[Rfam]
RNA sequence: CAGUAGGAAAUAGACCUACCAGGAUAAAAGUCGGAAUCCUGUAGCUUGGGUAGCAGCAUAAAGGGAAACCAAAAUGUUGAAGCCUACCGACAACAUUAUCGUAGGAUAAUGGCGAAUUACCAGGCCGUAGCGAAA
Number, nucleotide and partner (000 for none) at each position: 001c000002a000003g000004u000005a000006g000007g000008a000009a000010a000011u000012a000013g000014a000015c000016c000017u000018a000019c000020c041021a040022g039023g038024a037025u000026a000027a000028a000029a000030g000031u000032c000033g000034g000035a000036a000037u024038c023039c022040u021041g020042u000043a000044g000045c000046u000047u000048g000049g088050g087051u086052a085053g084054c079055a078056g077057c076058a075059u074060a000061a000062a000063g070064g069065g000066a000067a000068a000069c064070c063071a000072a000073a000074a059075u058076g057077u056078u055079g054080a000081a000082g000083c000084c053085u052086a051087c050088c049089g000090a000091c000092a000093a000094c000095a110096u109097u108098a107099u106100c105101g000102u000103a000104g000105g100106a099107u098108a097109a096110u095111g000112g128113c127114g126115a000116a000117u000118u000119a000120c000121c000122a000123g000124g000125c000126c114127g113128u112129a000130g000131c000132g000133a000134a000135a000